RNA: Small nucleolar RNA SNORD121A
RNA sequence: GUCCAAAAUAUAGUGAUGACGUCUUUUCCAAGUACAUAUCUGAUUGUUCUGUUAGGCAAAUGACUGUUGAGUGAUUUUUGGAU
Dot-bracket structure: ((((((.(.((...........................................................))...).))))))